[Rfam]
RNA sequence: AAAUAAAAGCAGAAGCACGCGCUUCUCGCCUUAGUUGAUAUAGUCACUGGGCUAGAUAGUUUUCGCCGAUUCUUUAGGUGGAUUAUGCGCGGGUUCUGAUAAAAAGAACUCGUUUUUUUAUUACCGA
Numbered sequence: 001a002a003a004u005a006a007a008a009g010c011a012g013a014a015g016c017a018c019g020c021g022c023u024u025c026u027c028g029c030c031u032u033a034g035u036u037g038a039u040a041u042a043g044u045c046a047c048u049g050g051g052c053u054a055g056a057u058a059g060u061u062u063u064c065g066c067c068g069a070u071u072c073u074u075u076a077g078g079u080g081g082a083u084u085a086u087g088c089g090c091g092g093g094u095u096c097u098g099a100u101a102a103a104a105a106g107a108a109c110u111c112g113u114u115u116u117u118u119u120a121u122u123a124c125c126g127a
Base pairs, nucleotide, nucleotide: 011026012025013024014023015022016021028052029051030050036046037045038044039043089113090112091111092110093109094108095107096106097105
Ribosomal protein L20 leader: a 127-nucleotide RNA from Enterococcus thailandicus. Pairs were carried over by alignment from the consensus structure, which was predicted with CMfinder. Rfam links the family to the GO term regulation of gene expression. This family is a putative r-protein leader autoregulatory structure found in B. subtilis and other low-GC Gram-positive bacteria. The organism belongs to Enterococcus, within Bacteria. A search with the family's covariance model found it, with a score of 62 bits.